This 260-nucleotide RNA from Salvia splendens belongs to the Rfam family "RNase MRP".
Pairs were carried over by alignment from the consensus structure, which is taken from published work.
The literature on the family includes a 1993 paper in FASEB J by Schmitt et al., "Secondary structure of RNase MRP RNA as predicted by phylogenetic comparison".
The source organism's lineage runs through Eukaryota, Magnoliopsida, asterids, Nepetoideae and core Calosphace.
RNA sequence: AAGUCAUGGGAUUAAGUGAAUGGGUUGUGGCCUAUUUCCAUAAUGGGCUGACCCAGGAAAGUCCCCGGGCCACGAACCGCAGAGAUGCGGGCUUGGAAACAAGCAAAGCCCAUGGGCUGGCGGUCUGGCCUAGUUGUCAGGGGCUGAGACACGUGAGGAGCCCUCUGACCCUGCGCCCUUGGUGAAAUUGGCUGAUACUUCACAGUUAUUCACUAGGCCCGUAAUUGGGCUAACUGAACGGGGCUUAUACUCCCAUGACA
Numbered sequence: 001a002a003g004u005c006a007u008g009g010g011a012u013u014a015a016g017u018g019a020a021u022g023g024g025u026u027g028u029g030g031c032c033u034a035u036u037u038c039c040a041u042a043a044u045g046g047g048c049u050g051a052c053c054c055a056g057g058a059a060a061g062u063c064c065c066c067g068g069g070c071c072a073c074g075a076a077c078c079g080c081a082g083a084g085a086u087g088c089g090g091g092c093u094u095g096g097a098a099a100c101a102a103g104c105a106a107a108g109c110c111c112a113u114g115g116g117c118u119g120g121c122g123g124u125c126u127g128g129c130c131u132a133g134u135u136g137u138c139a140g141g142g143g144c145u146g147a148g149a150c151a152c153g154u155g156a157g158g159a160g161c162c163c164u165c166u167g168a169c170c171c172u173g174c175g176c177c178c179u180u181g182g183u184g185a186a187a188u189u190g191g192c193u194g195a196u197a198c199u200u201c202a203c204a205g206u207u208a209u210u211c212a213c214u215a216g217g218c219c220c221g222u223a224a225u226u227g228g229g230c231u232a233a234c235u236g237a238a239c240g241g242g243g244c245u246u247a248u249a250c251u252c253c254c255a256u257g258a259c260a
Base pairs, nucleotide, nucleotide: 003259004258005257006256007255008254009253010252011251015214016213017212018211019210022054023053024052025051027041028040029039030038059246060245061244063243064242065241066240078089079088080087081086091104092103093102094101095100107183109181114178115177116176117175122170123169124168125167127162128161129160150155217230218229219228220227221226